[Rfam]
RNA sequence: AUCCCUUUCUCGGCCUUUUGGCUAAGAUCAAAUGUAGUAUAUGUUCUUAUCAGUUUAAUAUCUCAUAUGUGGAUCAAUGAUCCACAAGAUAUUAAAUUAAUUUGUUUAGGUGGAGAUUCUAUACCAAUAGCUUGCUAUUGAGAUUCUCAAGUGUCGCUCAUGUUUUGCACUAUAGCAUGAGUUCGGCGCAUCCCAC
Numbered sequence: 001a002u003c004c005c006u007u008u009c010u011c012g013g014c015c016u017u018u019u020g021g022c023u024a025a026g027a028u029c030a031a032a033u034g035u036a037g038u039a040u041a042u043g044u045u046c047u048u049a050u051c052a053g054u055u056u057a058a059u060a061u062c063u064c065a066u067a068u069g070u071g072g073a074u075c076a077a078u079g080a081u082c083c084a085c086a087a088g089a090u091a092u093u094a095a096a097u098u099a100a101u102u103u104g105u106u107u108a109g110g111u112g113g114a115g116a117u118u119c120u121a122u123a124c125c126a127a128u129a130g131c132u133u134g135c136u137a138u139u140g141a142g143a144u145u146c147u148c149a150a151g152u153g154u155c156g157c158u159c160a161u162g163u164u165u166u167g168c169a170c171u172a173u174a175g176c177a178u179g180a181g182u183u184c185g186g187c188g189c190a191u192c193c194c195a196c
Base pairs, nucleotide, nucleotide: 008027009026010025012023013022014021015020048067049066050065052063053062069085070084071083072082073081074080075079113148114147115146116145118143119142120141127138128137129136130135151189152188153187154186155185156184158180159179160178161177162176163175
RNA: U2 spliceosomal RNA